[Rfam]
RNA sequence: AUGAGUGCCUGUCCACCCCAUUCUUUCCGUAGCUGCGCCAGACUUCACGGCCGUUUUACCGGUUCCGUCGAAGCCGUGAGGCGCAACUCGAUAACCGUAGGCGAGCCGCUUGCCCCGUACGCCGGGGCGGCGGCUUUUUUA
Numbered sequence: 001a002u003g004a005g006u007g008c009c010u011g012u013c014c015a016c017c018c019c020a021u022u023c024u025u026u027c028c029g030u031a032g033c034u035g036c037g038c039c040a041g042a043c044u045u046c047a048c049g050g051c052c053g054u055u056u057u058a059c060c061g062g063u064u065c066c067g068u069c070g071a072a073g074c075c076g077u078g079a080g081g082c083g084c085a086a087c088u089c090g091a092u093a094a095c096c097g098u099a100g101g102c103g104a105g106c107c108g109c110u111u112g113c114c115c116c117g118u119a120c121g122c123c124g125g126g127g128c129g130g131c132g133g134c135u136u137u138u139u140u141a
Stems, first nucleotide, its partner, number of pairs: 007038002009035001011033002014029001041089002044086001052083004060076004092103001095100001104135006111129006
Burkholderia sRNA 2: a 141-nucleotide RNA from Paraburkholderia lacunae. Rfam classes the family as a small RNA. Taxonomically the source falls in Paraburkholderia (Bacteria, Pseudomonadati, Betaproteobacteria, Burkholderiales). A reference for the family is Ghosh et al. (2017), "Identification of novel small RNAs in Burkholderia cenocepacia KC-01 expressed under iron limitation and oxidative stress conditions", Microbiology. It scores 73 bits against the family's covariance model. From the family's description: Upregulated in response to iron ion depletion. Pairs were carried over by alignment from the consensus structure, which was predicted with RNAfold.